[Rfam]
Manganese Mn2+ riboswitch aptamer (yybP-ykoY): a 136-nucleotide RNA from Burkholderia seminalis.
It scores 65 bits against the family's covariance model.
RNA sequence: CCCUUCGUCUUUGGGGAGUAGCCUGCUUUCCGUCCCCCGGAAAGCGAACGCGUCAACACACUCGGCCUGCGGCCGUGGCGCGUUCGGCCUGAUCGGCUUGGCGAGACCAUGGGCGCGUCGCGUCGUUCCUGGUCGG
Numbered sequence: 001c002c003c004u005u006c007g008u009c010u011u012u013g014g015g016g017a018g019u020a021g022c023c024u025g026c027u028u029u030c031c032g033u034c035c036c037c038c039g040g041a042a043a044g045c046g047a048a049c050g051c052g053u054c055a056a057c058a059c060a061c062u063c064g065g066c067c068u069g070c071g072g073c074c075g076u077g078g079c080g081c082g083u084u085c086g087g088c089c090u091g092a093u094c095g096g097c098u099u100g101g102c103g104a105g106a107c108c109a110u111g112g113g114c115g116c117g118u119c120g121c122g123u124c125g126u127u128c129c130u131g132g133u134c135g136g
Stems, first nucleotide, its partner, number of pairs: 026044003046085010063075005

The organism belongs to Burkholderia cepacia complex, within Bacteria.